The record is a 63-nucleotide sequence from Sphingomonas sp. JC676, which matches "terC RNA" in Rfam. NCBI's taxonomy places the organism under Bacteria, Alphaproteobacteria, Sphingomonadales, Sphingomonadaceae, Sphingomonas.

RNA sequence: AGUGCGGACCGGGCCCCUCUGACGAGGGCUUUCUUGAAGCCCUUGUGAUGUCGGACCGCAUCG
Numbered sequence: 001a002g003u004g005c006g007g008a009c010c011g012g013g014c015c016c017c018u019c020u021g022a023c024g025a026g027g028g029c030u031u032u033c034u035u036g037a038a039g040c041c042c043u044u045g046u047g048a049u050g051u052c053g054g055a056c057c058g059c060a061u062c063g
Stems, first nucleotide, its partner, number of pairs: 006057002009054004022046010